[Rfam]
The family of this 100-nucleotide sequence from Colobus angolensis is "Y RNA". Taxonomically the source falls in Colobus angolensis (Eukaryota, Euteleostomi, Sarcopterygii, Cercopithecidae). Y RNAs are components of the Ro ribonucleoprotein particle (Ro RNP), in association with Ro60 and La proteins. The Y RNAs and Ro60 and La proteins are well conserved, but the function of the Ro RNP is not known. In humans the RNA component can be one of four small RNAs -- hY1, hY3, hY4 and hY5.
RNA sequence: AAUUGGUCUAAGUACAGUGGUGUUUAUAACUAAUUGAUCACAACUGGUAACAAAUUUCUUUGUUCCUUUAGCAGUCCCACUGCUUCACUUGAAUAAUCAA
Numbered sequence: 001a002a003u004u005g006g007u008c009u010a011a012g013u014a015c016a017g018u019g020g021u022g023u024u025u026a027u028a029a030c031u032a033a034u035u036g037a038u039c040a041c042a043a044c045u046g047g048u049a050a051c052a053a054a055u056u057u058c059u060u061u062g063u064u065c066c067u068u069u070a071g072c073a074g075u076c077c078c079a080c081u082g083c084u085u086c087a088c089u090u091g092a093a094u095a096a097u098c099a100a
Stems, first nucleotide, its partner, number of pairs: 002097004007092002010090002016081005022076001028064003032060002

It scores 44 bits against the family's covariance model.